SAM riboswitch aptamer (S box leader): a 145-nucleotide RNA from Jeotgalibacillus sp. R-1-5s-1. A search with the family's covariance model found it, with a score of 73 bits. The family is grouped with related families in Rfam's "SAM clan".

RNA sequence: CUCUUAUCCCGAGCUGGUGGAGGGACAGGCCCUAUGAAACCCAGCAACCUGCUCUGCAAAAAAGCGAACAGCUUUUGCGGUAAAACCAUCACUUGAGCGAAGGUGCUAACCUGUAGCAAGACGAACUUGUCUUGAACGAUAAGAG
Numbered sequence: 001c002u003c004u005u006a007u008c009c010c011g012a013g014c015u016g017g018u019g020g021a022g023g024g025a026c027a028g029g030c031c032c033u034a035u036g037a038a039a040c041c042c043a044g045c046a047a048c049c050u051g052c053u054c055u056g057c058a059a060a061a062a063a064g065c066g067a068a069c070a071g072c073u074u075u076u077g078c079g080g081u082a083a084a085a086c087c088a089u090c091a092c093u094u095g096a097g098c099g100a101a102g103g104u105g106c107u108a109a110c111c112u113g114u115a116g117c118a119a120g121a122c123g124a125a126c127u128u129g130u131c132u133u134g135a136a137c138g139a140u141a142a143g144a145g
Base pairs, nucleotide, nucleotide: 001145002144003143004142005141006140007139008138013042016041017040018039022032023031024030026116028114029112043107044106045105046104048103049102050099051098052097053096117134118133119132120131121130122129